The record is a 124-nucleotide RNA from Streptococcus pneumoniae, which matches "Streptococcus sRNA SpR19" in Rfam. Lineage of the source: Bacteria > Bacillota > Bacilli > Streptococcus > Streptococcus pneumoniae. For this family Rfam cites "Control of virulence by small RNAs in Streptococcus pneumoniae" (Mann et al., PLoS Pathog, 2012). The family's consensus secondary structure was predicted with mfold.
RNA sequence: GCGUUCUUCAAGCGAGCUUGGGAUAUUGGGAGCCAAGUAGGGCAAAAUAAUGAGCUGGCGCUUUCUGUAAAGUAUUAUCAAACAAUGAAAAGAAAUAAAUUAGGGUGGCCGCGUAUUUCAGACG
Numbered sequence: 001g002c003g004u005u006c007u008u009c010a011a012g013c014g015a016g017c018u019u020g021g022g023a024u025a026u027u028g029g030g031a032g033c034c035a036a037g038u039a040g041g042g043c044a045a046a047a048u049a050a051u052g053a054g055c056u057g058g059c060g061c062u063u064u065c066u067g068u069a070a071a072g073u074a075u076u077a078u079c080a081a082a083c084a085a086u087g088a089a090a091a092g093a094a095a096u097a098a099a100u101u102a103g104g105g106u107g108g109c110c111g112c113g114u115a116u117u118u119c120a121g122a123c124g
Stems, first nucleotide, its partner, number of pairs: 001112002003109001006108002008105002016073003021066003025062001027060002031056003038049002076090001078088003